[Rfam]
The record is a 74-nucleotide RNA sequence from Aliterella atlantica, which matches "tRNA" in Rfam. By type it is a transfer RNA. The family's consensus secondary structure is taken from published work.
RNA sequence: CGCGGUGUAGCUCAAUUGGUUAGAGCGUCCGGUUGUCUGCCGGAAAGUUGCGAGUUCGAGUCUCGUCACCGUGG
Numbered sequence: 001c002g003c004g005g006u007g008u009a010g011c012u013c014a015a016u017u018g019g020u021u022a023g024a025g026c027g028u029c030c031g032g033u034u035g036u037c038u039g040c041c042g043g044a045a046a047g048u049u050g051c052g053a054g055u056u057c058g059a060g061u062c063u064c065g066u067c068a069c070c071g072u073g074g
Base pairs, nucleotide, nucleotide: 001073002072003071004070005069006068007067010026011025012024013023028044029043030042031041032040050066051065052064053063054062
NCBI's taxonomy places the organism under Bacteria, Bacillati, Cyanobacteriota, Aliterellaceae, Aliterella atlantica.